This 100-nucleotide sequence from Pseudochelatococcus contaminans belongs to the Rfam family "traJ-II RNA".
RNA sequence: CGGCAAGAUGUGUGUUGUGGGUCCACAGGCUACGCCUGUUCCCCCUCAACACCGCCACCUUACUCACCUGCGGUUCGACGGCAUCUUGCUCUGCGAGGCC
Numbered sequence: 001c002g003g004c005a006a007g008a009u010g011u012g013u014g015u016u017g018u019g020g021g022u023c024c025a026c027a028g029g030c031u032a033c034g035c036c037u038g039u040u041c042c043c044c045c046u047c048a049a050c051a052c053c054g055c056c057a058c059c060u061u062a063c064u065c066a067c068c069u070g071c072g073g074u075u076c077g078a079c080g081g082c083a084u085c086u087u088g089c090u091c092u093g094c095g096a097g098g099c100c
Base pairs, nucleotide, nucleotide: 002090003089004088005087006086007085008084009083012052013051014050015049016048017047019045020044021043025039026038027037028036029035058081059080066074067073068072

Rfam 15.1 lists 174 matches to the family in 172 species.